Source information
Shown here is a 61-nucleotide RNA sequence from Streptomyces chumphonensis, a member of the family "Streptomyces RNA 2736". The pairing is the family consensus, mapped onto this sequence. On this family, see Vockenhuber et al., RNA Biol 2011: "Deep sequencing-based identification of small non-coding RNAs in Streptomyces coelicolor". From the family's description: Identified by deep sequencing of transcriptome at the end of exponential growth phase. Taxonomically the source falls in Streptomyces (Bacteria, Actinomycetota, Kitasatosporales, Streptomycetaceae).

[Rfam]
RNA sequence: CGCCCGGUCCGAUCCCGUGGGGGGAAUCGGAACCGGGAGGAGGGAACGCCCCGAUCGCGAG
Numbered sequence: 001c002g003c004c005c006g007g008u009c010c011g012a013u014c015c016c017g018u019g020g021g022g023g024g025a026a027u028c029g030g031a032a033c034c035g036g037g038a039g040g041a042g043g044g045a046a047c048g049c050c051c052c053g054a055u056c057g058c059g060a061g
Stems, first nucleotide, its partner, number of pairs: 001059002003037005009030005014024003042051003